[Rfam]
RNA sequence: GAACGUCUUCAGGGCGGGGUGCGAUUCCCCACCGGCGGUAGGUGCCUUGCGGCACGAGCCCGCGAGCGCUCCCGGCCCCGCCGGGAGGUCAGCAGAUCCGGUCGGAUGCCGGAGCCGACGGUGACAGUCCGGAUGAAAGAAGACGGCC
Numbered sequence: 001g002a003a004c005g006u007c008u009u010c011a012g013g014g015c016g017g018g019g020u021g022c023g024a025u026u027c028c029c030c031a032c033c034g035g036c037g038g039u040a041g042g043u044g045c046c047u048u049g050c051g052g053c054a055c056g057a058g059c060c061c062g063c064g065a066g067c068g069c070u071c072c073c074g075g076c077c078c079c080g081c082c083g084g085g086a087g088g089u090c091a092g093c094a095g096a097u098c099c100g101g102u103c104g105g106a107u108g109c110c111g112g113a114g115c116c117g118a119c120g121g122u123g124a125c126a127g128u129c130c131g132g133a134u135g136a137a138a139g140a141a142g143a144c145g146g147c148c
Base pairs, nucleotide, nucleotide: 004145005144006143007142008141009140010139017029018028019027031128032127033117034116035063036062037061038060058115059114066093067092097113098112099111100110101109119131120130121129

Notes: This 148-nucleotide sequence from Stenotrophomonas panacihumi belongs to the Rfam family "FMN riboswitch aptamer (RFN element)". Rfam's curators write: The RFN element is a highly conserved domain that is found frequently in the 5'-untranslated regions of prokaryotic mRNAs that encode for flavin mononucleotide (FMN) biosynthesis and transport proteins. This element is a metabolite-dependent riboswitch that directly binds FMN in the absence of proteins. The match comes from Rfam's covariance-model search (100 bits).